[Rfam]
RNA sequence: GUAGGAGAAAUCCAAAGGGAUCGCAUUGAUCCUGCAACCCACCCCACCAAAAAAAAAAGGAAAAAAGAUGUUUGGGUUAUAGGUAAAUUUGGGUCAGUGCCAUCCCUUUGGAUUCAUCCUU
Numbered sequence: 001g002u003a004g005g006a007g008a009a010a011u012c013c014a015a016a017g018g019g020a021u022c023g024c025a026u027u028g029a030u031c032c033u034g035c036a037a038c039c040c041a042c043c044c045c046a047c048c049a050a051a052a053a054a055a056a057a058a059g060g061a062a063a064a065a066a067g068a069u070g071u072u073u074g075g076g077u078u079a080u081a082g083g084u085a086a087a088u089u090u091g092g093g094u095c096a097g098u099g100c101c102a103u104c105c106c107u108u109u110g111g112a113u114u115c116a117u118c119c120u121u
Base pairs, nucleotide, nucleotide: 003120004119005118006117009114010113011112012111013110014109015108016107017106018105019104020103021102023100024099025098026096028095029094030093031092032091036088